RNA sequence: CGAGUUGGCCGGGCGGCCGCGGCGACGAGCGAUCGUCGUCGAGGAAAGUCCGGACUCCACAGGGCAGGGUGGUUGCUAACGGCAACCCGGAGUGAUCCGCGGGACAGUGCCACAGAGAACAGACCGCCUCGCACCCACGUGCGGGGUAAGGGUGAAACGGUGGUGUAAGAGACCACCAGCACCCCGGGUGACCGGGGUGGCUCGGUAAACCCCACCCGGAGCAAGACCAAGAGGCGCCACCCCGGUGGCGCUGCGCAGGCGCUUGAGGGCGGCCCGUCCGAGCCUGCGGGUAGGUCGCUAGAGCCCAUCGGUGACGGUGGGCCCAGAUGGAUGGUCGCCGAUCGGUGUCCCCGUAAGGGGCCCGUGAACAGAAUCCGGCUUACAGGCCAGCUCGCCCG
Numbered sequence: 001c002g003a004g005u006u007g008g009c010c011g012g013g014c015g016g017c018c019g020c021g022g023c024g025a026c027g028a029g030c031g032a033u034c035g036u037c038g039u040c041g042a043g044g045a046a047a048g049u050c051c052g053g054a055c056u057c058c059a060c061a062g063g064g065c066a067g068g069g070u071g072g073u074u075g076c077u078a079a080c081g082g083c084a085a086c087c088c089g090g091a092g093u094g095a096u097c098c099g100c101g102g103g104a105c106a107g108u109g110c111c112a113c114a115g116a117g118a119a120c121a122g123a124c125c126g127c128c129u130c131g132c133a134c135c136c137a138c139g140u141g142c143g144g145g146g147u148a149a150g151g152g153u154g155a156a157a158c159g160g161u162g163g164u165g166u167a168a169g170a171g172a173c174c175a176c177c178a179g180c181a182c183c184c185c186g187g188g189u190g191a192c193c194g195g196g197g198u199g200g201c202u203c204g205g206u207a208a209a210c211c212c213c214a215c216c217c218g219g220a221g222c223a224a225g226a227c228c229a230a231g232a233g234g235c236g237c238c239a240c241c242c243c244g245g246u247g248g249c250g251c252u253g254c255g256c257a258g259g260c261g262c263u264u265g266a267g268g269g270c271g272g273c274c275c276g277u278c279c280g281a282g283c284c285u286g287c288g289g290g291u292a293g294g295u296c297g298c299u300a301g302a303g304c305c306c307a308u309c310g311g312u313g314a315c316g317g318u319g320g321g322c323c324c325a326g327a328u329g330g331a332u333g334g335u336c337g338c339c340g341a342u343c344g345g346u347g348u349c350c351c352c353g354u355a356a357g358g359g360g361c362c363c364g365u366g367a368a369c370a371g372a373a374u375c376c377g378g379c380u381u382a383c384a385g386g387c388c389a390g391c392u393c394g395c396c397c398g
Stems, first nucleotide, its partner, number of pairs: 001394010011383001012339007020041009046381003050378005055221004062275004067217005072086005087101001088099004102212002107210002109206003124151002126147009159177006179201001180199008225296004255287006267279004303322008
RNA: Bacterial RNase P class A